[Rfam]
RNA sequence: AUGAUAGUAGCAGGGAGAGACUGCUUCACAGCAGCGCCGAAGGAGCAAGCCGGUCACGGUGAAUCUCUCAGGCAAAAGAACCUCUACUGGACG
Numbered sequence: 001a002u003g004a005u006a007g008u009a010g011c012a013g014g015g016a017g018a019g020a021c022u023g024c025u026u027c028a029c030a031g032c033a034g035c036g037c038c039g040a041a042g043g044a045g046c047a048a049g050c051c052g053g054u055c056a057c058g059g060u061g062a063a064u065c066u067c068u069c070a071g072g073c074a075a076a077a078g079a080a081c082c083u084c085u086a087c088u089g090g091a092c093g
Stems, first nucleotide, its partner, number of pairs: 006088005012083003021034004036073003039069002043067003049060002
RNA: Glycine riboswitch aptamer
Organism: Brevibacillus panacihumi